[Rfam]
Nucleotides: 540
Base pairs, nucleotide, nucleotide: 009532010531011530012529013528014527015526016525017524023518024484025483028455029454030452031451032450033449034448035447036445037444046107047106048105049062050061051060068101069100070099071098072097073096077089078088112120113119114118126141127140128139129138130137148179149177150176151175152174153173159166160165189196190195200227201226202225203224210218211217230438231437232436233435238271239270240269248259249258250257251256283375284374285373292369293368294367295366305354306353307352311327313326316323330334336348337347338346388409389408390407391406392405393404394403416432417431418430419429420428471478472477
Number, partner (000 for none) and nucleotide at each position: 001000g002000u003000a004000a005000a006000g007000a008000c009532g010531g011530c012529a013528a014527u015526a016525g017524g018000a019000g020000g021000a022000u023518u024484g025483c026000u027000a028455g029454g030452c031451u032450u033449g034448a035447g036445g037444a038000g039000a040000g041000a042000g043000g044000a045000a046107g047106g048105a049062c050061g051060u052000g053000g054000c055000a056000a057000g058000c059000u060051g061050c062049g063000a064000u065000a066000a067000g068101c069100u070099c071098g072097g073096g074000g075000u076000a077089g078088g079000u080000g081000c082000a083000c084000g085000c086000a087000c088078c089077c090000g091000u092000u093000g094000a095000u096073c097072c098071c099070g100069a101068g102000a103000u104000u105048u106047c107046c108000g109000a110000a111000u112120a113119g114118g115000a116000a117000u118114c119113c120112u121000g122000u123000a124000u125000a126141c127140u128139c129138c130137g131000c132000g133000c134000a135000a136000g137130c138129g139128g140127a141126g142000g143000u144000c145000g146000a147000a148179c149177c150176g151175u152174g153173g154000g155000a156000a157000u158000u159166g160165a161000a162000g163000c164000a165160u166159c167000u168000u169000a170000g171000u172000a173153c174152c175151a176150c177149g178000a179148g180000g181000a182000a183000g184000a185000g186000a187000a188000a189196u190195c191000a192000a193000u194000a195190g196189a197000g198000a199000u200227u201226u202225c203224c204000c205000a206000a207000g208000u209000a210218g211217a212000g213000g214000c215000g216000a217211u218210c219000g220000a221000a222000a223000a224203g225202g226201a227200a228000a229000g230438a231437g232436c233435c234000c235000a236000a237000a238271c239270u240269g241000a242000a243000u244000c245000u246000g247000c248259c249258g250257c251256g252000g253000u254000a255000a256251c257250g258249c259248g260000g261000c262000c263000g264000a265000g266000a267000u268000g269240u270239g271238g272000u273000g274000u275000u276000u277000u278000g279000g280000u281000g282000c283375g284374g285373c286000g287000c288000a289000a290000u291000g292369g293368c294367c295366c296000c297000a298000c299000g300000a301000a302000a303000u304000a305354g306353u307352c308000a309000a310000a311327g312000u313326g314000u315000u316323c317000u318000g319000a320000a321000a322000u323316g324000u325000u326313c327311c328000g329000g330334c331000u332000u333000a334330g335000a336348g337347g338346g339000u340000g341000a342000u343000a344000c345000c346338c347337c348336c349000c350000u351000a352307g353306a354305c355000g356000a357000a358000g359000u360000g361000g362000a363000a364000u365000g366295g367294g368293g369292c370000a371000g372000g373285g374284c375283c376000a377000g378000c379000a380000c381000c382000c383000g384000a385000g386000u387000a388409g389408u390407u391406g392405u393404c394403c395000u396000u397000g398000g399000c400000a401000g402000u403394g404393g405392g406391c407390a408389g409388c410000g411000a412000a413000g414000a415000u416432u417431g418430g419429u420428g421000a422000a423000a424000g425000u426000a427000g428420c429419a430418u431417c432416a433000a434000a435233g436232g437231c438230u439000a440000a441000a442000u443000a444037u445036c446000u447035c448034u449033c450032a451031a452030g453000a454029c455028c456000g457000a458000u459000a460000g461000u462000g463000u464000a465000c466000u467000a468000g469000u470000a471478c472477c473000g474000u475000g476000a477472g478471g479000g480000a481000a482000a483025g484024c485000u486000g487000a488000a489000a490000a491000g492000u493000a494000c495000c496000c497000c498000g499000g500000a501000a502000g503000g504000g505000g506000g507000g508000u509000g510000a511000a512000a513000a514000g515000u516000g517000c518023a519000u520000g521000a522000a523000a524017c525016c526015u527014a528013u529012u530011g531010c532009u533000u534000a535000c536000a537000g538000a539000c540000g
The record is a 540-nucleotide part of an RNA from Candidatus Cenarchaeum symbiosum, which matches "Archaeal large subunit ribosomal RNA" in Rfam. NCBI's taxonomy places the organism under Archaea, Thermoproteati, Nitrososphaerota, Candidatus Cenarchaeaceae, Candidatus Cenarchaeum.